[Rfam]
Notes: The family of this 73-nucleotide RNA sequence from Cimex lectularius is "Small nucleolar RNA SNORD18".
RNA sequence: UUUACAUGAUGAAUGCCACCUUUUGGUCCAUGUUGAUGAGAUCAUGUGAUUAUAUUUUGAAUAUUCUGAUAAA
Numbered sequence: 001u002u003u004a005c006a007u008g009a010u011g012a013a014u015g016c017c018a019c020c021u022u023u024u025g026g027u028c029c030a031u032g033u034u035g036a037u038g039a040g041a042u043c044a045u046g047u048g049a050u051u052a053u054a055u056u057u058u059g060a061a062u063a064u065u066c067u068g069a070u071a072a073a
Base pairs, nucleotide, nucleotide: 001073002072003071004070
The family's consensus secondary structure was predicted with PFOLD. Gene Ontology terms of the family: RNA processing and nucleolus. On this family, see Prislei et al., Nucleic Acids Res 1993: "Two different snoRNAs are encoded in introns of amphibian and human L1 ribosomal protein genes". It is annotated as a C/D-box small nucleolar RNA.